[Rfam]
RNA: Small nucleolar RNA Z266
RNA sequence: CAGCAAAAGUAUGAUGAUUCAAUUAGAUGUGCCAAUAGAGAAAUUCAUUCUCUCUAAUGAACUUUAAACUUUAUUUGGCAAUAAUUUCAUGACUUUUUGCUA
Numbered sequence: 001c002a003g004c005a006a007a008a009g010u011a012u013g014a015u016g017a018u019u020c021a022a023u024u025a026g027a028u029g030u031g032c033c034a035a036u037a038g039a040g041a042a043a044u045u046c047a048u049u050c051u052c053u054c055u056a057a058u059g060a061a062c063u064u065u066a067a068a069c070u071u072u073a074u075u076u077g078g079c080a081a082u083a084a085u086u087u088c089a090u091g092a093c094u095u096u097u098u099g100c101u102a
Stems, first nucleotide, its partner, number of pairs: 002101005007095003